[Rfam]
RNA sequence: UCGUCAGGUAGGAUAAUCCUUACCUGUUCCUCUUUUCAGAGGGCAGAUAGAAAAUGAUGAUUGGAGUUCGCAUGAUACGUGAUUAUACGUCUCUGCGUGAUUAGGGCCUGCAACACCCUAAUCGCUCCUAUCUGAU
Numbered sequence: 001u002c003g004u005c006a007g008g009u010a011g012g013a014u015a016a017u018c019c020u021u022a023c024c025u026g027u028u029c030c031u032c033u034u035u036u037c038a039g040a041g042g043g044c045a046g047a048u049a050g051a052a053a054a055u056g057a058u059g060a061u062u063g064g065a066g067u068u069c070g071c072a073u074g075a076u077a078c079g080u081g082a083u084u085a086u087a088c089g090u091c092u093c094u095g096c097g098u099g100a101u102u103a104g105g106g107c108c109u110g111c112a113a114c115a116c117c118c119u120a121a122u123c124g125c126u127c128c129u130a131u132c133u134g135a136u
Stems, first nucleotide, its partner, number of pairs: 024046003028043006074093002077090003080085001097125009
U8 small nucleolar RNA: a 136-nucleotide RNA from Sorex araneus. The family's RNA type in Rfam is C/D-box small nucleolar RNA. The family's consensus secondary structure is taken from published work. Its family is annotated with nucleolus and RNA processing in the Gene Ontology.